Shown here is an 88-nucleotide RNA sequence from Helicobacter mustelae, a member of the family "tRNA".

[Rfam]
RNA sequence: GGACAGGUGGGUGAGUUGGCUGAAACCACAUCCCUGCUAAGGAUGCGUAGCCGCAAGGUUACCGAGGGUUCGAAUCCCUCCCUGUCCG
Numbered sequence: 001g002g003a004c005a006g007g008u009g010g011g012u013g014a015g016u017u018g019g020c021u022g023a024a025a026c027c028a029c030a031u032c033c034c035u036g037c038u039a040a041g042g043a044u045g046c047g048u049a050g051c052c053g054c055a056a057g058g059u060u061a062c063c064g065a066g067g068g069u070u071c072g073a074a075u076c077c078c079u080c081c082c083u084g085u086c087c088g
Base pairs, nucleotide, nucleotide: 001087002086003085004084005083006082007081010027011026012025029045030044031043032042033041064080065079066078067077068076
About the family: Transfer RNA (tRNA) molecules are approximately 80 nucleotides in length. Their secondary structure includes four short double-helical elements and three loops (D, anti-codon, and T loops). Further hydrogen bonds mediate the characteristic L-shaped molecular structure. tRNAs have two regions of fundamental functional importance: the anti-codon, which is responsible for specific mRNA codon recognition, and the 3' end, to which the tRNAs corresponding amino acid is attached (by aminoacyl-tRNA synthetases). tRNAs cope with the degeneracy of the genetic code in two manners: having more than one tRNA (with a specific anti-codon) for a particular amino acid; and 'wobble' base-pairing, i.e. permitting non-standard base-pairing at the 3rd anti-codon position. Pairs were carried over by alignment from the consensus structure, which is taken from published work. It scores 57 bits against the family's covariance model.